[Rfam]
RNA: RgsA sRNA
RNA sequence: CAAAAACCCCGGGCUGAUUCCGAAACUGUUUAAAAAACGUACAGCGGCGGGGAUGAAAACGGCCCAAGGCUGGCCAUACUCAAGAUGUUGGCCACCUUCCCCCCAAAGGGUUGGCCGAUAAAGGUGACGACGGACCGCGCACCUUUGCACUACUCCUAAUGGUCUUAACCCGGACUCCUCCCCCAGACUCCGG
Numbered sequence: 001c002a003a004a005a006a007c008c009c010c011g012g013g014c015u016g017a018u019u020c021c022g023a024a025a026c027u028g029u030u031u032a033a034a035a036a037a038c039g040u041a042c043a044g045c046g047g048c049g050g051g052g053a054u055g056a057a058a059a060c061g062g063c064c065c066a067a068g069g070c071u072g073g074c075c076a077u078a079c080u081c082a083a084g085a086u087g088u089u090g091g092c093c094a095c096c097u098u099c100c101c102c103c104c105a106a107a108g109g110g111u112u113g114g115c116c117g118a119u120a121a122a123g124g125u126g127a128c129g130a131c132g133g134a135c136c137g138c139g140c141a142c143c144u145u146u147g148c149a150c151u152a153c154u155c156c157u158a159a160u161g162g163u164c165u166u167a168a169c170c171c172g173g174a175c176u177c178c179u180c181c182c183c184c185a186g187a188c189u190c191c192g193g
Stems, first nucleotide, its partner, number of pairs: 039164001042161002087119004092114002095109003120146007128137001170193004176187002